[Rfam]
RNA sequence: ACACGGCGAAAGGAGGUGGUCCCGCUUUGAACGGCAAUAGGACUCUUGAGGUGGUUGUUCGCUAGCCGCUGUCCUUGACAUGGGUUUGUCGAGACCGUGUGACAGCGGUGCGGCGACUUAUGACAGCUACCCGAUCCCCGAGGUGUCUCCGGCGUUAGUCCCGCCGGCCGCGUGAGCGGGCGCCUCGGGGAUCGUCUAUG
Numbered sequence: 001a002c003a004c005g006g007c008g009a010a011a012g013g014a015g016g017u018g019g020u021c022c023c024g025c026u027u028u029g030a031a032c033g034g035c036a037a038u039a040g041g042a043c044u045c046u047u048g049a050g051g052u053g054g055u056u057g058u059u060c061g062c063u064a065g066c067c068g069c070u071g072u073c074c075u076u077g078a079c080a081u082g083g084g085u086u087u088g089u090c091g092a093g094a095c096c097g098u099g100u101g102a103c104a105g106c107g108g109u110g111c112g113g114c115g116a117c118u119u120a121u122g123a124c125a126g127c128u129a130c131c132c133g134a135u136c137c138c139c140g141a142g143g144u145g146u147c148u149c150c151g152g153c154g155u156u157a158g159u160c161c162c163g164c165c166g167g168c169c170g171c172g173u174g175a176g177c178g179g180g181c182g183c184c185u186c187g188g189g190g191a192u193c194g195u196c197u198a199u200g
Stems, first nucleotide, its partner, number of pairs: 015059006060115004065111002068106004073101001075099001132194013149167006
RNA: Actinobacteria sRNA Ms_IGR-5